[Rfam]
RNA: Prion pseudoknot
RNA sequence: CCAUGGCGGUGGCUGGGUGAUGCUACAGUGAAGCAUGGUGGUGGCUGG
Dot-bracket structure: (((((............................)))))..........